Shown here is a 135-nucleotide RNA from Balaenoptera musculus, a member of the family "Small nucleolar RNA SNORA70". Rfam classes the family as an H/ACA-box small nucleolar RNA. The base pairs follow the family's consensus structure, which was predicted with PFOLD. Rfam 15.1 lists 5,173 matches to the family in 383 species.
[Rfam]
RNA sequence: UUGCAGCCAAUUAAGCUGACUGUGCUCUUUUCCCCAUGGGGCCCCUGUGUGCAAUGACUGAAAACAGCAGCCUUCUUAGUAGUGUAUGCAGCCUGUUGCCUCUAUGGGUUGCCCUAAGGGACCCUGGAGACAGCC
Numbered sequence: 001u002u003g004c005a006g007c008c009a010a011u012u013a014a015g016c017u018g019a020c021u022g023u024g025c026u027c028u029u030u031u032c033c034c035c036a037u038g039g040g041g042c043c044c045c046u047g048u049g050u051g052c053a054a055u056g057a058c059u060g061a062a063a064a065c066a067g068c069a070g071c072c073u074u075c076u077u078a079g080u081a082g083u084g085u086a087u088g089c090a091g092c093c094u095g096u097u098g099c100c101u102c103u104a105u106g107g108g109u110u111g112c113c114c115u116a117a118g119g120g121a122c123c124c125u126g127g128a129g130a131c132a133g134c135c
Stems, first nucleotide, its partner, number of pairs: 002053004019048002022045001026041003079122002089111006
For this family Rfam cites "Pseudouridine in RNA: what, where, how, and why" (Charette and Gray, IUBMB Life, 2000). About the family: snoRNA U70 seems to be exclusive to mammals and is a member of the H/ACA class of snoRNA which contain H (ANANNA) and ACA box motifs. H/ACA box snoRNAs are involved in the conversion of uridines to pseudouridines (5-ribosyluracil) a constituent of structural RNAs (transfer, ribosomal, small nuclear, and small nucleolar).